[Rfam]
RNA sequence: AUGCUAUGAUGGUUUCAUAGUUCAGCAGGUUGAAUCAUGAAAAGAUUUACUAUUUGUCCGAUGUGGGG
Number, nucleotide and partner (000 for none) at each position: 001a000002u065003g064004c063005u000006a038007u037008g036009a035010u034011g000012g000013u028014u027015u000016c025017a000018u000019a000020g000021u000022u000023c000024a000025g016026c000027a014028g013029g000030u000031u000032g000033a000034a010035u009036c008037a007038u006039g000040a000041a000042a000043a055044g054045a053046u052047u000048u000049a000050c000051u000052a046053u045054u044055u043056g000057u000058c000059c000060g000061a000062u000063g004064u003065g002066g000067g000068g000

The record is a 68-nucleotide sequence from Carlito syrichta, which matches "Small nucleolar RNA SNORD77" in Rfam.
NCBI's taxonomy places the organism under Eukaryota, Chordata, Sarcopterygii, Primates, Carlito.
Rfam 15.1 lists 396 matches to the family in 167 species.
On this family, see Tycowski et al., Curr Biol 2004: "Guide RNAs with 5' caps and novel box C/D snoRNA-like domains for modification of snRNAs in metazoa".
By type it is a C/D-box small nucleolar RNA.
The match comes from Rfam's covariance-model search (58 bits).
About the family: U77 belongs to the C/D family of snoRNAs. It is predicted to guide 2'O-ribose methylation of large 28S rRNA subunit at position A1521. The C/D snoRNAs U44, U47, U74, U75, U76, U78, U79, U80 and U81 share the same host gene as U77 (non-coding).